[Rfam]
RNA sequence: GUCCACGUUGCGGCGGACCAGAGCCAGAACCCUCCAAGCGCGAUAGUUGCGGUCGGCCAAAACCUCGUCGUCAUAACAAUGAGGCCGGUUGU
Numbered sequence: 001g002u003c004c005a006c007g008u009u010g011c012g013g014c015g016g017a018c019c020a021g022a023g024c025c026a027g028a029a030c031c032c033u034c035c036a037a038g039c040g041c042g043a044u045a046g047u048u049g050c051g052g053u054c055g056g057c058c059a060a061a062a063c064c065u066c067g068u069c070g071u072c073a074u075a076a077c078a079a080u081g082a083g084g085c086c087g088g089u090u091g092u
Stems, first nucleotide, its partner, number of pairs: 001018004023047002026044001032038001049092010063081001065079001067077002
Dot-bracket structure: ((((..........))))....((.(.....(.....).....).)).((((((((((....(.(.((.......)).).).))))))))))
Rhizobiales sRNA Atu_Ti1: a 92-nucleotide RNA sequence from Paenirhizobium selenitireducens. A search with the family's covariance model found it, with a score of 67 bits. On this family, see Wilms et al., RNA Biol 2012: "Deep sequencing uncovers numerous small RNAs on all four replicons of the plant pathogen Agrobacterium tumefaciens".